RNA sequence: GUACUGAGCAGAGCUUAGCUGAAUGGCGAACAGUGAUGGGGUCUCACUGUGUUCACAGUGGUUAACAUCUGCACCUCAA
Numbered sequence: 001g002u003a004c005u006g007a008g009c010a011g012a013g014c015u016u017a018g019c020u021g022a023a024u025g026g027c028g029a030a031c032a033g034u035g036a037u038g039g040g041g042u043c044u045c046a047c048u049g050u051g052u053u054c055a056c057a058g059u060g061g062u063u064a065a066c067a068u069c070u071g072c073a074c075c076u077c078a079a
Stems, first nucleotide, its partner, number of pairs: 011069002015065006026056001028054005

A member of the RNA family "mir-27 microRNA precursor family" from Megalops atlanticus, 79 nucleotides long. For this family Rfam cites "MicroRNA profile of Marek's disease virus-transformed T-cell line MSB-1: predominance of virus-encoded microRNAs" (Yao et al., J Virol, 2008). It scores 51 bits against the family's covariance model.